[Rfam]
RNA sequence: GCAGUCGGUCGGUCUGUCGCUUGCAUUUUUAUGUAUGAGGAAAGUCCGGGCAACGCAGAGCAUCCUACUUCCUAACGGGAAGCUAUUCGCGAGAGUAGAGUAACGCAGAAGAAAAUAACCGCCUCUUCGGAGGUAAGGGUGAGAAGGUGGAGUAAGAGCCCACCGGUCGGGUGGUGACACAUCGAGCCGUGCGUCUUAGGAGUUGUAAGGUCAUGUAAACCGGCGCCAUGAGGGUUGCUCGCCCCAUGUCGGAGGGUAGACCGCUAGAAUUUAAUGGUGACAUUGAAUCCAGAUAAAUGACAGACACCUCUUUCGGGAGGAACAGAACUCGGCUUACAGACCGACUGCUUUU
Numbered sequence: 001g002c003a004g005u006c007g008g009u010c011g012g013u014c015u016g017u018c019g020c021u022u023g024c025a026u027u028u029u030u031a032u033g034u035a036u037g038a039g040g041a042a043a044g045u046c047c048g049g050g051c052a053a054c055g056c057a058g059a060g061c062a063u064c065c066u067a068c069u070u071c072c073u074a075a076c077g078g079g080a081a082g083c084u085a086u087u088c089g090c091g092a093g094a095g096u097a098g099a100g101u102a103a104c105g106c107a108g109a110a111g112a113a114a115a116u117a118a119c120c121g122c123c124u125c126u127u128c129g130g131a132g133g134u135a136a137g138g139g140u141g142a143g144a145a146g147g148u149g150g151a152g153u154a155a156g157a158g159c160c161c162a163c164c165g166g167u168c169g170g171g172u173g174g175u176g177a178c179a180c181a182u183c184g185a186g187c188c189g190u191g192c193g194u195c196u197u198a199g200g201a202g203u204u205g206u207a208a209g210g211u212c213a214u215g216u217a218a219a220c221c222g223g224c225g226c227c228a229u230g231a232g233g234g235u236u237g238c239u240c241g242c243c244c245c246a247u248g249u250c251g252g253a254g255g256g257u258a259g260a261c262c263g264c265u266a267g268a269a270u271u272u273a274a275u276g277g278u279g280a281c282a283u284u285g286a287a288u289c290c291a292g293a294u295a296a297a298u299g300a301c302a303g304a305c306a307c308c309u310c311u312u313u314c315g316g317g318a319g320g321a322a323c324a325g326a327a328c329u330c331g332g333c334u335u336a337c338a339g340a341c342c343g344a345c346u347g348c349u350u351u352u
Stems, first nucleotide, its partner, number of pairs: 001348010011337001012305007020037001022035005042335003046332005051205004058240004063201005068082005083098001085096004099196002103194005119138002121134005146164005166187001167185001169182001171180003209262004220252005232244004269288008
Bacterial RNase P class A: a 352-nucleotide RNA sequence from Bacteroides sp. OM05-12. Rfam describes the family as follows. Ribonuclease P (RNase P) is a ubiquitous endoribonuclease, found in archaea, bacteria and eukarya as well as chloroplasts and mitochondria. A search with the family's covariance model found it, with a score of 234 bits. By type it is a ribozyme. NCBI's taxonomy places the organism under Bacteria, Pseudomonadati, Bacteroidota, Bacteroidaceae, Bacteroides.